A member of the RNA family "Small nucleolar RNA SNORD47" from Triplophysa tibetana, 73 nucleotides long. Its family is annotated with nucleolus and RNA processing in the Gene Ontology.
RNA sequence: AACCUGUGAUGAUAUGAUUCUGCCAAAUGAAAUUAAUGAUUAUACCCCUACCGUUCCAUUUAUUUCUGAGGUU
Numbered sequence: 001a002a003c004c005u006g007u008g009a010u011g012a013u014a015u016g017a018u019u020c021u022g023c024c025a026a027a028u029g030a031a032a033u034u035a036a037u038g039a040u041u042a043u044a045c046c047c048c049u050a051c052c053g054u055u056c057c058a059u060u061u062a063u064u065u066c067u068g069a070g071g072u073u
Base pairs, nucleotide, nucleotide: 001073002072003071004070
Background
The family's RNA type in Rfam is C/D-box small nucleolar RNA.